[Rfam]
RNA: Small nucleolar RNA SNORD74
RNA sequence: UCCCGUGUUUUAUGAUGAAUAAGUGUUGGUAGGGACAUCUGAGUCAAUGUGAAGUAACGCCAACAUUUCUGACAUGGGA
Number, nucleotide and partner (000 for none) at each position: 001u079002c078003c077004c076005g075006u000007g000008u000009u000010u000011u000012a000013u000014g000015a000016u000017g000018a000019a000020u000021a000022a000023g000024u000025g000026u000027u000028g000029g000030u000031a000032g000033g000034g000035a000036c000037a000038u000039c000040u000041g000042a000043g000044u000045c000046a000047a000048u000049g000050u000051g000052a000053a000054g000055u000056a000057a000058c000059g000060c000061c000062a000063a000064c000065a000066u000067u000068u000069c000070u000071g000072a000073c000074a000075u005076g004077g003078g002079a001